[Rfam]
Overview: Rfam assigns this 109-nucleotide sequence from Terribacillus saccharophilus to the family "BsrF". The source organism's lineage runs through Bacteria, Bacillati, Caryophanales, Bacillaceae and Terribacillus. The match comes from Rfam's covariance-model search (65 bits).
Nucleotides: 109
Stems, first nucleotide, its partner, number of pairs: 014080004024074002027070006035043002045064002048061003087109009
Number, partner (000 for none) and nucleotide at each position: 001000g002000c003000g004000a005000u006000g007000a008000g009000c010000u011000g012000a013000a014080u015079u016078g017077c018000a019000u020000a021000a022000g023000u024074c025073g026000g027070u028069a029068a030067a031066g032065c033000g034000c035043g036042u037000c038000u039000u040000a041000g042036a043035c044000a045064c046063g047000u048061g049060u050059g051000g052000a053000u054000g055000u056000g057000g058000c059050c060049g061048c062000a063046c064045g065032g066031c067030u068029u069028u070027a071000c072000a073025c074024g075000c076000c077017g078016c079015a080014a081000u082000u083000a084000a085000c086000a087109a088108a089107g090106g091105c092104a093103c094102c095101c096000u097000g098000c099000g100000a101095g102094g103093g104092u105091g106090c107089c108088u109087u

The family's consensus secondary structure was predicted with WAR. The family's RNA type in Rfam is small RNA.